Rfam assigns this 91-nucleotide RNA sequence from Homarus americanus to the family "mir-277 microRNA precursor family".
Nucleotides: 091
Base pairs, nucleotide, nucleotide: 008083009082013077014076015075016074017073018072019071020070021069023066025064026063027062028061029060030059031058032057033056
Number, partner (000 for none) and nucleotide at each position: 001000c002000c003000a004000g005000c006000a007000c008083g009082g010000u011000u012000g013077c014076g015075u016074a017073c018072c019071a020070g021069a022000a023066g024000u025064g026063c027062g028061u029060u030059u031058a032057c033056a034000u035000g036000u037000g038000g039000c040000u041000u042000c043000c044000c045000c046000c047000u048000u049000g050000u051000g052000a053000a054000u055000c056033u057032g058031u059030a060029a061028a062027u063026g064025c065000a066023u067000u068000g069021u070020c071019u072018g073017g074016u075015a076014u077013g078000u079000c080000a081000u082009c083008c084000u085000a086000g087000c088000u089000c090000g091000g